Annotation: The family of this 238-nucleotide sequence from Octadecabacter sp. B2R22 is "permuted transfer-messenger RNA". Pairs were carried over by alignment from the consensus structure, which is taken from published work. Bacterial tmRNA, also known as 10Sa RNA or SsrA, is named for its dual tRNA and mRNA-like properties. Its role is to liberate the mRNA from a stalled ribosome. To accomplish this part of the tmRNA is used as a reading frame that ends in a translation stop signal. The broken mRNA is replaced in the ribosome by the tmRNA and translation of the tmRNA leads to addition of a proteolysis tag to the incomplete protein enabling recognition by a protease. Recently a number of permuted tmRNA genes have been found encoded in two parts. tmRNAs have been identified in eubacteria and some chloroplasts but are absent from archaeal and eukaryote nuclear genomes.
RNA sequence: GAACAUAAACGCGCUCGCAAUAAGCGGAUCGGACCCGGGGGCGGUACCCGGCGUCUCCACCAACACCCAACCGUCCGUCAGGGCAUGCGGGAAACGGCUCAUUUGGCCAGUCUGGGGACGAAAUAGGAUCGACGAACGUCUAAAGGGGUUAGCUUUGUUUCGGUGAGUUACCACCGUUAUCGGUACGUUUAAGCUAGUUGCAAAUGACAACAAUGCUCGGGUUGCUCUCGCUGCGUAA
Numbered sequence: 001g002a003a004c005a006u007a008a009a010c011g012c013g014c015u016c017g018c019a020a021u022a023a024g025c026g027g028a029u030c031g032g033a034c035c036c037g038g039g040g041g042c043g044g045u046a047c048c049c050g051g052c053g054u055c056u057c058c059a060c061c062a063a064c065a066c067c068c069a070a071c072c073g074u075c076c077g078u079c080a081g082g083g084c085a086u087g088c089g090g091g092a093a094a095c096g097g098c099u100c101a102u103u104u105g106g107c108c109a110g111u112c113u114g115g116g117g118a119c120g121a122a123a124u125a126g127g128a129u130c131g132a133c134g135a136a137c138g139u140c141u142a143a144a145g146g147g148g149u150u151a152g153c154u155u156u157g158u159u160u161c162g163g164u165g166a167g168u169u170a171c172c173a174c175c176g177u178u179a180u181c182g183g184u185a186c187g188u189u190u191a192a193g194c195u196a197g198u199u200g201c202a203a204a205u206g207a208c209a210a211c212a213a214u215g216c217u218c219g220g221g222u223u224g225c226u227c228u229c230g231c232u233g234c235g236u237a238a
Stems, first nucleotide, its partner, number of pairs: 001160005013149004025138002029135003035051005052120007161176004
Description:
NCBI's taxonomy places the organism under Bacteria, Pseudomonadati, Alphaproteobacteria, Roseobacteraceae, Octadecabacter. By type it is a non-coding RNA gene.